[Rfam]
RNA sequence: ACUGUCUUAAUCUGCAUCAUUACACCAGGUUUCACCUGUGUGACUUUCAUACUUGGUGAGAGAGAAAAGAGUUCCUCACGGACCUUGGAGUGGCCCCACAGCGGCCUCACUUGCCUAGAGACAAGACAGAC
Numbered sequence: 001a002c003u004g005u006c007u008u009a010a011u012c013u014g015c016a017u018c019a020u021u022a023c024a025c026c027a028g029g030u031u032u033c034a035c036c037u038g039u040g041u042g043a044c045u046u047u048c049a050u051a052c053u054u055g056g057u058g059a060g061a062g063a064g065a066a067a068a069g070a071g072u073u074c075c076u077c078a079c080g081g082a083c084c085u086u087g088g089a090g091u092g093g094c095c096c097c098a099c100a101g102c103g104g105c106c107u108c109a110c111u112u113g114c115c116u117a118g119a120g121a122c123a124a125g126a127c128a129g130a131c
Base pairs, nucleotide, nucleotide: 002064003063005061006060007059008058010057011056012055014053020043021042022041023040024039025038072121073120075118076117078116080114087111088110092106093105094104095103
Small nucleolar RNA SNORA64/SNORA10 family: a 131-nucleotide RNA from Neotoma lepida. The family has 9 seed sequences and 703 matches in Rfam 15.1. This family belongs to the H/ACA class of small nucleolar RNAs (snoRNAs) which act as guides in the the modification of uridines to pseudouridines. This family includes the human snoRNAs U64 and ACA10 and mouse MBI-29. Pairs were carried over by alignment from the consensus structure, which is taken from published work.